[Rfam]
RNA sequence: UCUUCAUUCUCCACACUCUCUCGCCGGUCAAAGAGGCGAGAGAGUGCGAGGAAUGAAGAGA
Numbered sequence: 001u002c003u004u005c006a007u008u009c010u011c012c013a014c015a016c017u018c019u020c021u022c023g024c025c026g027g028u029c030a031a032a033g034a035g036g037c038g039a040g041a042g043a044g045u046g047c048g049a050g051g052a053a054u055g056a057a058g059a060g061a
Stems, first nucleotide, its partner, number of pairs: 001059007010050001012048001014046004019041004
Shown here is a 61-nucleotide sequence from Pristionchus pacificus, a member of the family "mir-8364 microRNA precursor family". Rfam 15.1 lists 3,320 matches to the family in 2 species. The family's consensus secondary structure was predicted with RNAalifold.